This 277-nucleotide RNA from Sciurus carolinensis belongs to the Rfam family "Mason-Pfizer monkey virus packaging signal".
On this family, see Mustafa et al., Virus Res 2004: "Mutational analysis of the predicted secondary RNA structure of the Mason-Pfizer monkey virus packaging signal".
Rfam's curators write: This family represents a group of sequences that are related to the Mason-Pfizer monkey virus (MPMV) packaging signal. The packaging signal is located in the 5' UTR and is required for specific RNA encapsidation.
[Rfam]
Nucleotides: 277
Stems, first nucleotide, its partner, number of pairs: 006031003012026003035047002081130002085126002095121001097119001100116001102114002136156001139153001141152004161204001163202001164200002211253008221239002224236003262277001264275002267272001
Number, partner (000 for none) and nucleotide at each position: 001000u002000g003000g004000c005000a006031c007030c008029c009000a010000a011000u012026g013025u014024g015000g016000g017000g018000c019000c020000u021000g022000g023000a024014c025013a026012u027000g028000g029008g030007g031006g032000a033000u034000a035047u036046c037000a038000a039000g040000a041000g042000g043000g044000a045000a046036g047035a048000g049000g050000c051000u052000u053000u054000u055000g056000a057000u058000a059000g060000u061000u062000c063000g064000g065000c066000c067000g068000a069000a070000c071000a072000c073000a074000g075000c076000a077000g078000a079000a080000g081130u082129c083000a084000g085126u086125u087000c088000a089000a090000c091000a092000a093000a094000u095121a096000u097119c098000a099000c100116c101000a102114c103113g104000u105000g106000a107000a108000u109000c110000u111000g112000c113103c114102g115000a116100g117000u118000c119097g120000c121095u122000c123000u124000u125086a126085a127000a128000a129082g130081g131000u132000a133000c134000a135000g136156u137000a138000a139153u140000g141152c142151c143150u144149a145000a146000u147000u148000a149144u150143g151142g152141g153139a154000c155000a156136a157000g158000a159000a160000u161204u162000a163202a164200g165199u166000a167000a168000g169000c170000a171000u172000a173000a174000a175000a176000u177000u178000u179000u180000u181000a182000u183000u184000a185000a186000g187000c188000a189000a190000u191000u192000a193000a194000a195000a196000g197000a198000a199165g200164c201000c202163u203000c204161a205000a206000a207000g208000a209000c210000a211253c212252g213251g214250g215249g216248a217247g218246u219000c220000a221239g222238g223000g224236u225235u226234a227000a228000a229000a230000g231000c232000a233000a234226u235225a236224a237000g238222c239221u240000u241000u242000u243000u244000a245000a246218g247217u248216u249215u250214u251213u252212u253211g254000a255000a256000c257000u258000c259000a260000u261000c262277a263000a264275g265274g266000a267272c268000a269000c270000c271000u272267g273000c274265c275264u276000g277262u